Small nucleolar RNA snoR27: a 94-nucleotide RNA sequence from Hevea brasiliensis. The base pairs follow the family's consensus structure, which was predicted with WAR. Rfam classes the family as a C/D-box small nucleolar RNA. Rfam 15.1 lists 649 matches to the family in 212 species. The literature on the family includes a 2001 paper in RNA by Brown et al., "Multiple snoRNA gene clusters from Arabidopsis". Gene Ontology terms of the family: nucleolus and RNA processing.
RNA sequence: AUUGGAUUAACGAUGCUAAUUAGAAACUGCAUUAUCUAUCUGCAACUUCCUUAUUGGAAUUGAAGAUAUCUGUUAACGAAGUCUGAGAUUCUGU
Numbered sequence: 001a002u003u004g005g006a007u008u009a010a011c012g013a014u015g016c017u018a019a020u021u022a023g024a025a026a027c028u029g030c031a032u033u034a035u036c037u038a039u040c041u042g043c044a045a046c047u048u049c050c051u052u053a054u055u056g057g058a059a060u061u062g063a064a065g066a067u068a069u070c071u072g073u074u075a076a077c078g079a080a081g082u083c084u085g086a087g088a089u090u091c092u093g094u
Base pairs, nucleotide, nucleotide: 001094002093004091005090006089007088